Shown here is a 293-nucleotide sequence from Marchantia polymorpha, a member of the family "Plant signal recognition particle RNA". Clan: SRP clan. The base pairs follow the family's consensus structure, which is taken from published work.
RNA sequence: UCUGGGCAGCGUAGCGGCUGCCUGUAACCCGAGCGGGAGUAGGAGAGAUGGAAGCUGGGGCUCUUGCUGAGGACCGCCGGGAUCAUGUUGAAGGCACGUCCUCUUGAAGCGUGGAGUCCUGGUCCGGGGUCCUCCGCGGAAGCGAGAGGAGUCUGGGGAGAUGAUGCGGAAGGCACAGCGUGAGGCGGGCGACCGAGCAGCGAACACUUCCCACUCUGCGCAGUCAAGGGACAGCGUGCUUGAAUGCUUGCUAGCGAUCAUCCGAUGCGAGCAGCUUCCAGCCACCCCUCUCU
Numbered sequence: 001u002c003u004g005g006g007c008a009g010c011g012u013a014g015c016g017g018c019u020g021c022c023u024g025u026a027a028c029c030c031g032a033g034c035g036g037g038a039g040u041a042g043g044a045g046a047g048a049u050g051g052a053a054g055c056u057g058g059g060g061c062u063c064u065u066g067c068u069g070a071g072g073a074c075c076g077c078c079g080g081g082a083u084c085a086u087g088u089u090g091a092a093g094g095c096a097c098g099u100c101c102u103c104u105u106g107a108a109g110c111g112u113g114g115a116g117u118c119c120u121g122g123u124c125c126g127g128g129g130u131c132c133u134c135c136g137c138g139g140a141a142g143c144g145a146g147a148g149g150a151g152u153c154u155g156g157g158g159a160g161a162u163g164a165u166g167c168g169g170a171a172g173g174c175a176c177a178g179c180g181u182g183a184g185g186c187g188g189g190c191g192a193c194c195g196a197g198c199a200g201c202g203a204a205c206a207c208u209u210c211c212c213a214c215u216c217u218g219c220g221c222a223g224u225c226a227a228g229g230g231a232c233a234g235c236g237u238g239c240u241u242g243a244a245u246g247c248u249u250g251c252u253a254g255c256g257a258u259c260a261u262c263c264g265a266u267g268c269g270a271g272c273a274g275c276u277u278c279c280a281g282c283c284a285c286c287c288c289u290c291u292c293u
Base pairs, nucleotide, nucleotide: 002039003038004023005022006021007020008019009018010017028037029036030035044293045292046291047290048289050287051286054283056280057279058278059276060275061274062273064271066268067267071263072262075256076255077254079252081247086243092241093240094239095238096237097236098235099234100230101229103228104227105226106225107224109221110220111219112218113217114216115215116214117213119160120159123157124156125155126154127153128152130150131149132148133147134146135144136143137142168211169210170209171208172207179202180201181200186195187194188193